The record is a 116-nucleotide RNA from Aquamicrobium lusatiense, which matches "TPP riboswitch aptamer (THI element)" in Rfam.

RNA sequence: ACAUUCACCAAGGGGAGCCCUGACAAGGGGCUGAGAGACCGCUGGCGCAAGCAGUGCGGUGACCCUUCGAACCUGAUCCGGAUCAUGCCGGCGAAGGGAUGGCGAAUGUCAAUGCU
Numbered sequence: 001a002c003a004u005u006c007a008c009c010a011a012g013g014g015g016a017g018c019c020c021u022g023a024c025a026a027g028g029g030g031c032u033g034a035g036a037g038a039c040c041g042c043u044g045g046c047g048c049a050a051g052c053a054g055u056g057c058g059g060u061g062a063c064c065c066u067u068c069g070a071a072c073c074u075g076a077u078c079c080g081g082a083u084c085a086u087g088c089c090g091g092c093g094a095a096g097g098g099a100u101g102g103c104g105a106a107u108g109u110c111a112a113u114g115c116u
Stems, first nucleotide, its partner, number of pairs: 006104001008102003011066004017031005038060005072097003078091004
NCBI's taxonomy places the organism under Bacteria, Pseudomonadati, Pseudomonadota, Phyllobacteriaceae, Aquamicrobium.